[Rfam]
RNA sequence: CUCUUAUCGAGAGAGGUGGAGGGACAGGCCCUAUGAAGCCCGGCAACCGUCAAGCGUUCCGUUUGAAAAGGUGCCAAUUCCUACAAAGCAGAGCUUUGGCAGAUGAGAG
Numbered sequence: 001c002u003c004u005u006a007u008c009g010a011g012a013g014a015g016g017u018g019g020a021g022g023g024a025c026a027g028g029c030c031c032u033a034u035g036a037a038g039c040c041c042g043g044c045a046a047c048c049g050u051c052a053a054g055c056g057u058u059c060c061g062u063u064u065g066a067a068a069a070g071g072u073g074c075c076a077a078u079u080c081c082u083a084c085a086a087a088g089c090a091g092a093g094c095u096u097u098g099g100c101a102g103a104u105g106a107g108a109g
Stems, first nucleotide, its partner, number of pairs: 001109008013041001015040003021031003026082003042075004047071002050066005079101001084098006
RNA: SAM riboswitch aptamer (S box leader)
Organism: Exobacillus caeni